This 78-nucleotide sequence from Hibiscus syriacus belongs to the Rfam family "Small nucleolar RNA snoR60". Gene Ontology terms of the family: nucleolus and RNA processing. It scores 62 bits against the family's covariance model. Rfam 15.1 lists 1,133 matches to the family in 227 species. Rfam classes the family as a C/D-box small nucleolar RNA. For this family Rfam cites "Fibrillarin genes encode both a conserved nucleolar protein and a novel small nucleolar RNA involved in ribosomal RNA methylation in Arabidopsis thaliana" (Barneche et al., J Biol Chem, 2000).
RNA sequence: AUGCAUCUGCUCAACUCUACUCGGAUUCCCCUUCAAGACUUAAUUUCAUGGGUGAUACUAAAUCGAGUUUCUGAUGCA
Numbered sequence: 001a002u003g004c005a006u007c008u009g010c011u012c013a014a015c016u017c018u019a020c021u022c023g024g025a026u027u028c029c030c031c032u033u034c035a036a037g038a039c040u041u042a043a044u045u046u047c048a049u050g051g052g053u054g055a056u057a058c059u060a061a062a063u064c065g066a067g068u069u070u071c072u073g074a075u076g077c078a
Stems, first nucleotide, its partner, number of pairs: 002078006